[Rfam]
Shown here is an 83-nucleotide sequence from Mytilus edulis, a member of the family "Vault RNA". It is annotated as a non-coding RNA gene. The match comes from Rfam's covariance-model search (48 bits).

RNA sequence: GUGUCGGCGUAGUCGAGUGGUUACUUCGUACAAAUACAAAUUUUCAAAUCCCGUAGAAACCACUGACGCUUUCCGGUACUUUU
Numbered sequence: 001g002u003g004u005c006g007g008c009g010u011a012g013u014c015g016a017g018u019g020g021u022u023a024c025u026u027c028g029u030a031c032a033a034a035u036a037c038a039a040a041u042u043u044u045c046a047a048a049u050c051c052c053g054u055a056g057a058a059a060c061c062a063c064u065g066a067c068g069c070u071u072u073c074c075g076g077u078a079c080u081u082u083u
Stems, first nucleotide, its partner, number of pairs: 002078006012067004017063004025058003